Group II catalytic intron D1-D4-3: a 172-nucleotide RNA from Paraburkholderia panacisoli. A search with the family's covariance model found it, with a score of 112 bits. Lineage of the source: Bacteria > Pseudomonadati > Burkholderiales > Burkholderiaceae > Paraburkholderia. Rfam describes the family as follows. Group II introns are found in rRNA, tRNA and mRNA of organelles in fungi, plants and protists, and also in mRNA in bacteria. The base pairs follow the family's consensus structure.
[Rfam]
RNA sequence: ACGAGGGUGACCGAGUGUGGGGAGGAAGCGUGGAGCGAAACUGCGAGCCGAUGGACAAGAACCGGAUAGAAGGCGUUGCCGACCAGGGCGAGCGGGCACGAAACCGCGAAGCUCUCGUGAUCAAGGGUCAGGCGAUGUAGAUCCGGCGGUUGUGCAGUGACGGAGUGCGUUC
Numbered sequence: 001a002c003g004a005g006g007g008u009g010a011c012c013g014a015g016u017g018u019g020g021g022g023a024g025g026a027a028g029c030g031u032g033g034a035g036c037g038a039a040a041c042u043g044c045g046a047g048c049c050g051a052u053g054g055a056c057a058a059g060a061a062c063c064g065g066a067u068a069g070a071a072g073g074c075g076u077u078g079c080c081g082a083c084c085a086g087g088g089c090g091a092g093c094g095g096g097c098a099c100g101a102a103a104c105c106g107c108g109a110a111g112c113u114c115u116c117g118u119g120a121u122c123a124a125g126g127g128u129c130a131g132g133c134g135a136u137g138u139a140g141a142u143c144c145g146g147c148g149g150u151u152g153u154g155c156a157g158u159g160a161c162g163g164a165g166u167g168c169g170u171u172c
Stems, first nucleotide, its partner, number of pairs: 001016002005012002028172001030170003036163001040158006046151005062146006073138003077134003081129004086114004092107004